[Rfam]
RNA sequence: CAGGUCCGCACCGUGGACGGCCGCGCCGCGAGGCGGCCCCUGGGGCUACGCUGACCGCGUGCGCCUUCGGCACCGGAGGCGCAAAGCCGACAGCCGUCGCACUCCAGGGAGCACUCUCAUG
Numbered sequence: 001c002a003g004g005u006c007c008g009c010a011c012c013g014u015g016g017a018c019g020g021c022c023g024c025g026c027c028g029c030g031a032g033g034c035g036g037c038c039c040c041u042g043g044g045g046c047u048a049c050g051c052u053g054a055c056c057g058c059g060u061g062c063g064c065c066u067u068c069g070g071c072a073c074c075g076g077a078g079g080c081g082c083a084a085a086g087c088c089g090a091c092a093g094c095c096g097u098c099g100c101a102c103u104c105c106a107g108g109g110a111g112c113a114c115u116c117u118c119a120u121g
Stems, first nucleotide, its partner, number of pairs: 060083004065078004086100002089098003
Streptomyces-metH RNA: a 121-nucleotide RNA sequence from Streptomyces sp. SID7982. The family's consensus secondary structure is taken from published work.